A member of the RNA family "RNase MRP" from Gossypium anomalum, 272 nucleotides long. The match comes from Rfam's covariance-model search (83 bits). The base pairs follow the family's consensus structure, which is taken from published work. On this family, see Li et al., RNA 2002: "Phylogenetic analysis of the structure of RNase MRP RNA in yeasts". The source organism's lineage runs through Eukaryota, Embryophyta, Pentapetalae, malvids and Gossypium.
[Rfam]
RNA sequence: CAACUACUAGACGAAGUGAAUGGGUUGCGGCCGGUGCUUGUUAACUUGACCAGACCCAGGAAAGUCCCCGGGCCCUUUACUGCAGAGAUGCAGGCUCGGAAACGAGCAAAGCUUAAGGCCGUUAGGGUCUGUCCUUGCCAAUUGCAAGACGGGGCUGAGACAAGUGUGGAGCCCUAAUGAUCCUAAUGCCUAAGCAAUUUGGCCGAUGCUCACAGUUAUUCACUUGGUCCCUAAGCUUGGACUAACUGAACGGGGCUUAUGAUCUAGUAGUU
Numbered sequence: 001c002a003a004c005u006a007c008u009a010g011a012c013g014a015a016g017u018g019a020a021u022g023g024g025u026u027g028c029g030g031c032c033g034g035u036g037c038u039u040g041u042u043a044a045c046u047u048g049a050c051c052a053g054a055c056c057c058a059g060g061a062a063a064g065u066c067c068c069c070g071g072g073c074c075c076u077u078u079a080c081u082g083c084a085g086a087g088a089u090g091c092a093g094g095c096u097c098g099g100a101a102a103c104g105a106g107c108a109a110a111g112c113u114u115a116a117g118g119c120c121g122u123u124a125g126g127g128u129c130u131g132u133c134c135u136u137g138c139c140a141a142u143u144g145c146a147a148g149a150c151g152g153g154g155c156u157g158a159g160a161c162a163a164g165u166g167u168g169g170a171g172c173c174c175u176a177a178u179g180a181u182c183c184u185a186a187u188g189c190c191u192a193a194g195c196a197a198u199u200u201g202g203c204c205g206a207u208g209c210u211c212a213c214a215g216u217u218a219u220u221c222a223c224u225u226g227g228u229c230c231c232u233a234a235g236c237u238u239g240g241a242c243u244a245a246c247u248g249a250a251c252g253g254g255g256c257u258u259a260u261g262a263u264c265u266a267g268u269a270g271u272u
Base pairs, nucleotide, nucleotide: 002272003271004270005269006268007267008266009265010264011263014225015224016223017222018221019220022057023056024055025054062258063257064256066255067254068253069252081092082091083090084089094107095106096105097104098103111195112194113193114192115191117190118189119188123185124184125183126182137172138171160167161166227242228241229240230239